[Rfam]
RNA sequence: GCGCAGUUUGGGCAAACCCGGAGCGAUCCGGCGACGCAAAGCUACAGGGACUCCCUUGCGGGAGUUUGCCAGUUGCCCGC
Numbered sequence: 001g002c003g004c005a006g007u008u009u010g011g012g013c014a015a016a017c018c019c020g021g022a023g024c025g026a027u028c029c030g031g032c033g034a035c036g037c038a039a040a041g042c043u044a045c046a047g048g049g050a051c052u053c054c055c056u057u058g059c060g061g062g063a064g065u066u067u068g069c070c071a072g073u074u075g076c077c078c079g080c
Stems, first nucleotide, its partner, number of pairs: 012037002018031005040074004047070002049066007
Background: The record is an 80-nucleotide RNA sequence from Paraburkholderia phytofirmans, which matches "c-di-GMP-I riboswitch aptamer" in Rfam. Lineage of the source: Bacteria > Pseudomonadati > Pseudomonadota > Burkholderiales > Paraburkholderia phytofirmans. The sequence is in the family's curated seed alignment.